Annotation
The record is a 131-nucleotide RNA sequence from Nothoprocta perdicaria, which matches "Small nucleolar RNA SNORA13" in Rfam. Rfam 15.1 lists 1,034 matches to the family in 605 species.
[Rfam]
RNA sequence: UGCCUUUGUGUUGCCCGUUCAUUCACCUCCAGAGUGAAUGUGGUGUCAAAAAAAGGCAAACGAGCUCUUGAGGAGACCCCAUGGGGAGCUGGUUCUUUACCUUGCUCCUUCUGGGCUUUGCGAGAACAACA
Numbered sequence: 001u002g003c004c005u006u007u008g009u010g011u012u013g014c015c016c017g018u019u020c021a022u023u024c025a026c027c028u029c030c031a032g033a034g035u036g037a038a039u040g041u042g043g044u045g046u047c048a049a050a051a052a053a054a055g056g057c058a059a060a061c062g063a064g065c066u067c068u069u070g071a072g073g074a075g076a077c078c079c080c081a082u083g084g085g086g087a088g089c090u091g092g093u094u095c096u097u098u099a100c101c102u103u104g105c106u107c108c109u110u111c112u113g114g115g116c117u118u119u120g121c122g123a124g125a126a127c128a129a130c131a
Stems, first nucleotide, its partner, number of pairs: 002057006009048002012045004016040008067124004071119001073118003077114001083111004087106002091101002
The organism belongs to Nothoprocta, within Eukaryota.
The base pairs follow the family's consensus structure, which was predicted with CMfinder.
Gene Ontology terms of the family: RNA processing and nucleolus.